RNA sequence: UCGAAGCUCCAUCUACAAAUGCAUAAGAUUUGUAUUGUAGUGUAUAUGAGUUUUUGAAAGUAAGGGAGCAAUAACGUCCUCUUGGUAGAACAAGAAAAGAAUUAUUGCUCCUUUA
Numbered sequence: 001u002c003g004a005a006g007c008u009c010c011a012u013c014u015a016c017a018a019a020u021g022c023a024u025a026a027g028a029u030u031u032g033u034a035u036u037g038u039a040g041u042g043u044a045u046a047u048g049a050g051u052u053u054u055u056g057a058a059a060g061u062a063a064g065g066g067a068g069c070a071a072u073a074a075c076g077u078c079c080u081c082u083u084g085g086u087a088g089a090a091c092a093a094g095a096a097a098a099g100a101a102u103u104a105u106u107g108c109u110c111c112u113u114u115a
Stems, first nucleotide, its partner, number of pairs: 008023001010021003062114013077098001080095004

The record is a 115-nucleotide sequence, which matches "Plastid-psbA-1 3UTR RNA" in Rfam.
A reference for the family is Richter et al. (2023), "Retrograde signaling in plants: A critical review focusing on the GUN pathway and beyond", Plant Commun.
Rfam's curators write: Plastid psbA-1 is a non-coding RNA (ncRNA) present in plastids.
The family's RNA type in Rfam is cis-regulatory element.